[Rfam]
Shown here is a 77-nucleotide sequence from Alligator mississippiensis, a member of the family "Mammalian CPEB3 ribozyme". From the family's description: The mammalian CPEB3 ribozyme is a self cleaving RNA located in the second intron of the CPEB3 gene which belongs to a family of genes regulating messenger RNA polyadenylation. This ribozyme is highly conserved and found only in mammals. The CPEB3 ribozyme is structurally and biochemically related to the human hepatitis delta virus (HDV) ribozyme and the HDV ribozyme is proposed to have arisen from the human transcriptome. There is currently only one other known self cleaving ribozyme in mammals, the CoTC motif. The organism belongs to Alligator, within Eukaryota. Rfam links the family to the GO term RNA nuclease activity. A search with the family's covariance model found it, with a score of 40 bits.
RNA sequence: GGUCACAAAUUUGCAGCUGCAUCAGAAGUGCUCACAGCGCAGCCUGUCAGAUUGCAAUGAAAUCUGCAAAUUCUGCU
Numbered sequence: 001g002g003u004c005a006c007a008a009a010u011u012u013g014c015a016g017c018u019g020c021a022u023c024a025g026a027a028g029u030g031c032u033c034a035c036a037g038c039g040c041a042g043c044c045u046g047u048c049a050g051a052u053u054g055c056a057a058u059g060a061a062a063u064c065u066g067c068a069a070a071u072u073c074u075g076c077u
Stems, first nucleotide, its partner, number of pairs: 013044001016043003021077001023075005028040003048066006